[Rfam]
The family of this 62-nucleotide RNA sequence from Geminocystis sp. M7585_C2015_104 is "Cyanobacterial functional RNA 1". It scores 42 bits against the family's covariance model.
RNA sequence: GCGGAGACAAAGUUUCCGUUCACUCCUCACACCAUAAACCGCUCCUUCUGCGGGGGCGGAUU
Numbered sequence: 001g002c003g004g005a006g007a008c009a010a011a012g013u014u015u016c017c018g019u020u021c022a023c024u025c026c027u028c029a030c031a032c033c034a035u036a037a038a039c040c041g042c043u044c045c046u047u048c049u050g051c052g053g054g055g056g057c058g059g060a061u062u
Base pairs, nucleotide, nucleotide: 001019002018003017004016005015006014007013008012040058041057042056043055044054045053046052
For this family Rfam cites "A motif-based search in bacterial genomes identifies the ortholog of the small RNA Yfr1 in all lineages of cyanobacteria" (Voss et al., BMC Genomics, 2007). The base pairs follow the family's consensus structure, which is taken from published work.